[Rfam]
RNA sequence: AUUAUUUGAGGACAGAACAGGCAUCUGUCGCACCACAAAUGUGGUUUGGAAAGAGAUGUGGGAUACGCCGCCCCACCAAAUAAU
Numbered sequence: 001a002u003u004a005u006u007u008g009a010g011g012a013c014a015g016a017a018c019a020g021g022c023a024u025c026u027g028u029c030g031c032a033c034c035a036c037a038a039a040u041g042u043g044g045u046u047u048g049g050a051a052a053g054a055g056a057u058g059u060g061g062g063a064u065a066c067g068c069c070g071c072c073c074c075a076c077c078a079a080a081u082a083a084u
Base pairs, nucleotide, nucleotide: 001084002083003082004081005080006079007078008077011029012028013027014026015025020069021068022067031053032045033044034043035042058076059075060074061073062072
Shown here is an 84-nucleotide RNA, a member of the family "skipping-rope RNA". The base pairs follow the family's consensus structure, which is taken from published work. By type it is a small RNA.